[Rfam]
RNA sequence: UUUUAUAUCCAAAGCCCAACUAUCUUCAAAGCUUUUCAAGGUUUCUUACCUACCACAUCUACAUUCAUCAUGUCUCCCUGCACCUGCAACUGCUGCUCUGGCGAGUGCAGCUCCUGCUCUUGCGAGUCCUGCAAGGUAUGUUGUGCUUGGUU
Numbered sequence: 001u002u003u004u005a006u007a008u009c010c011a012a013a014g015c016c017c018a019a020c021u022a023u024c025u026u027c028a029a030a031g032c033u034u035u036u037c038a039a040g041g042u043u044u045c046u047u048a049c050c051u052a053c054c055a056c057a058u059c060u061a062c063a064u065u066c067a068u069c070a071u072g073u074c075u076c077c078c079u080g081c082a083c084c085u086g087c088a089a090c091u092g093c094u095g096c097u098c099u100g101g102c103g104a105g106u107g108c109a110g111c112u113c114c115u116g117c118u119c120u121u122g123c124g125a126g127u128c129c130u131g132c133a134a135g136g137u138a139u140g141u142u143g144u145g146c147u148u149g150g151u152u
Stems, first nucleotide, its partner, number of pairs: 079103003086096003107132003116123002
RNA: A. fumigatus sRNA Afu_254
Organism: Penicillium bovifimosum